Shown here is a 74-nucleotide sequence from Alligator mississippiensis, a member of the family "Mammalian CPEB3 ribozyme". The family's consensus secondary structure is taken from published work. A search with the family's covariance model found it, with a score of 37 bits.
RNA sequence: UUACAAGUUCAAGGCCAUAGUACAAGUGCUUAUGGUGUGGCCAGUCAGAUUAUAACAAAUCUGUGAAUUAUGCU
Numbered sequence: 001u002u003a004c005a006a007g008u009u010c011a012a013g014g015c016c017a018u019a020g021u022a023c024a025a026g027u028g029c030u031u032a033u034g035g036u037g038u039g040g041c042c043a044g045u046c047a048g049a050u051u052a053u054a055a056c057a058a059a060u061c062u063g064u065g066a067a068u069u070a071u072g073c074u
Stems, first nucleotide, its partner, number of pairs: 013042004019074004024069002026038003046063006
The literature on the family includes a 2006 paper in Science by Salehi-Ashtiani et al., "A genomewide search for ribozymes reveals an HDV-like sequence in the human CPEB3 gene".